[Rfam]
RNA sequence: GGCCACCUUUCAAAAGGGGGCUUGAACAUAGGCGGAGAUGCCCGAAGGGCCUUCGCCGUUAGCAAACGGAAGACAGAAA
Numbered sequence: 001g002g003c004c005a006c007c008u009u010u011c012a013a014a015a016g017g018g019g020g021c022u023u024g025a026a027c028a029u030a031g032g033c034g035g036a037g038a039u040g041c042c043c044g045a046a047g048g049g050c051c052u053u054c055g056c057c058g059u060u061a062g063c064a065a066a067c068g069g070a071a072g073a074c075a076g077a078a079a
Base pairs, nucleotide, nucleotide: 001022002021003020004019006018007017008016009015010014031057032056033055034054035053040050041049042048043047
Overview: A member of the RNA family "L2-Alphaproteobacteria ribosomal protein leader", 79 nucleotides long. It is one of the family's seed sequences. It is annotated as a cis-regulatory leader.